The record is a 64-nucleotide RNA from Myotis lucifugus, which matches "mir-9242 microRNA precursor family" in Rfam. The base pairs follow the family's consensus structure, which was predicted with RNAalifold.

RNA sequence: GGCCUCCCUCUUUGGGGCGAUCGAUCAUAGGGCUCCGCGAUUGAUCGCCACAGAGAGGGAGGCC
Dot-bracket structure: ((((((((((((((.(((((((((((.(.(....).).))))))))))).))))))))))))))